[Rfam]
The record is a 79-nucleotide RNA from Medicago truncatula, which matches "MIR5269 microRNA precursor family" in Rfam. The family's consensus secondary structure was predicted with RNAalifold. Rfam links the family to the GO terms miRNA-mediated post-transcriptional gene silencing and RISC complex. The source organism's lineage runs through Eukaryota, Pentapetalae, Fabaceae, Hologalegina and Medicago.
RNA sequence: UUGGUUUAAAUCAUUGUGGGUCUACACUUUGAAUAUUGAACCCCCACAAAGUGGUAGGACAUACAUUGAUUUCAUCCAA
Number, nucleotide and partner (000 for none) at each position: 001u079002u078003g077004g076005u000006u074007u000008a072009a071010a070011u069012c068013a067014u000015u065016g064017u063018g062019g000020g000021u000022c057023u056024a055025c053026a052027c051028u050029u049030u048031g047032a000033a000034u000035a000036u000037u000038g000039a000040a000041c000042c000043c000044c000045c000046a000047c031048a030049a029050a028051g027052u026053g025054g000055u024056a023057g022058g000059a000060c000061a000062u018063a017064c016065a015066u000067u013068g012069a011070u010071u009072u008073c000074a006075u000076c004077c003078a002079a001